[Rfam]
RNA sequence: AGAAAGGAGCAAUAAUCAUUUUCUUGUUCUGUCAAGAGGGUGCUAUUGCUCUUUUUUUCUC
Numbered sequence: 001a002g003a004a005a006g007g008a009g010c011a012a013u014a015a016u017c018a019u020u021u022u023c024u025u026g027u028u029c030u031g032u033c034a035a036g037a038g039g040g041u042g043c044u045a046u047u048g049c050u051c052u053u054u055u056u057u058u059c060u061c
Base pairs, nucleotide, nucleotide: 001057002056003055004054005053006052007051008050009049010048011047012046013045014044016042017040019038022037023036024035025034026033
Dot-bracket structure: ((((((((((((((.((.(..(((((......)))))).).).))))))))))))))....
Source information: Shown here is a 61-nucleotide RNA sequence from Solanum commersonii, a member of the family "Plastid-psbA-2 3UTR RNA". The organism belongs to Solanum, within Eukaryota. The match comes from Rfam's covariance-model search (58 bits). Plastid psbA-2 is a non-coding RNA (ncRNA) present in plastids. It was identified in inverted repeat sequences in the 3 prime untranslate region (3UTR) of photosystem II quinone-binding protein (psbA).